RNA sequence: UGCCUUUCGCGUUGGGGCGUCCAAUGCGAAACCAGACGGCUGCUCUUAUAGCAAGCCGGAUAGGGCAGAAAGCGUGGUUCGUACAGGGUACGGCGAUCGCAUGCGGUGCUCGAGCCAGUCCGAUGGCCAACGAGCCCGCCGCCCGAAGGCGCCGCGUGCGCACGAAAAAGGCCCUCAUCACCGAUGAGGGCCUUUACCU
Numbered sequence: 001u002g003c004c005u006u007u008c009g010c011g012u013u014g015g016g017g018c019g020u021c022c023a024a025u026g027c028g029a030a031a032c033c034a035g036a037c038g039g040c041u042g043c044u045c046u047u048a049u050a051g052c053a054a055g056c057c058g059g060a061u062a063g064g065g066c067a068g069a070a071a072g073c074g075u076g077g078u079u080c081g082u083a084c085a086g087g088g089u090a091c092g093g094c095g096a097u098c099g100c101a102u103g104c105g106g107u108g109c110u111c112g113a114g115c116c117a118g119u120c121c122g123a124u125g126g127c128c129a130a131c132g133a134g135c136c137c138g139c140c141g142c143c144c145g146a147a148g149g150c151g152c153c154g155c156g157u158g159c160g161c162a163c164g165a166a167a168a169a170g171g172c173c174c175u176c177a178u179c180a181c182c183g184a185u186g187a188g189g190g191c192c193u194u195u196a197c198c199u
Stems, first nucleotide, its partner, number of pairs: 003035001005031006013023003037058004041053004063144004072100003075096001079093005103139003108135004114128001115126002149161004167195013

The family of this 199-nucleotide RNA from Trinickia soli is "Burkholderia sRNA 11". The match comes from Rfam's covariance-model search (134 bits). The family's RNA type in Rfam is small RNA. From the family's description: Identified by RNA-seq, RACE and Northern blot. Strongly expressed in biofilm. Identified in as ncRNA13. Rfam links the family to the GO term bacterial biofilm matrix. The base pairs follow the family's consensus structure, which was predicted with RNAfold.